[Rfam]
RNA sequence: GCGGGAGUGGCGGAAUUGGCAGACGCGCACGUUUGAGGGGCGUGUGGUUAACACCGUACGGGUUCAAGUCCCGUCUUCCGCA
Numbered sequence: 001g002c003g004g005g006a007g008u009g010g011c012g013g014a015a016u017u018g019g020c021a022g023a024c025g026c027g028c029a030c031g032u033u034u035g036a037g038g039g040g041c042g043u044g045u046g047g048u049u050a051a052c053a054c055c056g057u058a059c060g061g062g063u064u065c066a067a068g069u070c071c072c073g074u075c076u077u078c079c080g081c082a
Stems, first nucleotide, its partner, number of pairs: 001081007010026003028044005058074005
About this RNA:
This 82-nucleotide RNA sequence from Desulfitobacterium metallireducens belongs to the Rfam family "tRNA". The source organism's lineage runs through Bacteria, Bacillota, Eubacteriales, Desulfitobacterium and Desulfitobacterium metallireducens. The base pairs follow the family's consensus structure, which is taken from published work. Rfam's curators write: Transfer RNA (tRNA) molecules are approximately 80 nucleotides in length. Their secondary structure includes four short double-helical elements and three loops (D, anti-codon, and T loops). Further hydrogen bonds mediate the characteristic L-shaped molecular structure. tRNAs have two regions of fundamental functional importance: the anti-codon, which is responsible for specific mRNA codon recognition, and the 3' end, to which the tRNAs corresponding amino acid is attached (by aminoacyl-tRNA synthetases). tRNAs cope with the degeneracy of the genetic code in two manners: having more than one tRNA (with a specific anti-codon) for a particular amino acid; and 'wobble' base-pairing, i.e. permitting non-standard base-pairing at the 3rd anti-codon position.